[Rfam]
RNA sequence: CAAGCUAUGCGUGACUGGCGGAACAUGGGGAACCAUGAGGGAGCGCAUAGGAUUAUCAGCCGUACGCCUGGGCAGAGGUG
Numbered sequence: 001c002a003a004g005c006u007a008u009g010c011g012u013g014a015c016u017g018g019c020g021g022a023a024c025a026u027g028g029g030g031a032a033c034c035a036u037g038a039g040g041g042a043g044c045g046c047a048u049a050g051g052a053u054u055a056u057c058a059g060c061c062g063u064a065c066g067c068c069u070g071g072g073c074a075g076a077g078g079u080g
Base pairs, nucleotide, nucleotide: 005050006049007048008047009046010045011044012043015040016039017068018067019066020065025036026035027034028033057075059073060072061071

Rfam assigns this 80-nucleotide sequence from Cohnella xylanilytica to the family "ZMP/ZTP riboswitch aptamer (pfl RNA motif)". The family's consensus secondary structure is taken from published work. The match comes from Rfam's covariance-model search (63 bits). The source organism's lineage runs through Bacteria, Bacillota, Bacilli, Caryophanales and Cohnella.